About this RNA: A member of the RNA family "Mammalian CPEB3 ribozyme" from Parnassius apollo, 77 nucleotides long. A search with the family's covariance model found it, with a score of 52 bits. The base pairs follow the family's consensus structure, which is taken from published work. Gene Ontology term of the family: RNA nuclease activity.

[Rfam]
RNA sequence: CUUUAUCCUUUGUGGGUCAUUGUAGAAGCGUUCUCGUCGCGACCCCUGCCAGCCCUUUUCAGGGCUGCAAUUCUACA
Dot-bracket structure: .............[[[[[..((((((((((.......)))]]]]]....(((((((....)))))))...)))))))